[Rfam]
RNA: Vault RNA
Organism: Cavia porcellus
RNA sequence: GGGCUGGCUUUAGCCCAGCGGUUCCCAACCGCCCUGGCCGAUAGGUCCGGUGGUUUGAGACCCGUGGGCGCUCUCCAGUCCUUUU
Dot-bracket structure: .((((((.....((((.((((..(.(((..........................))).)..)))))))).....)))))).....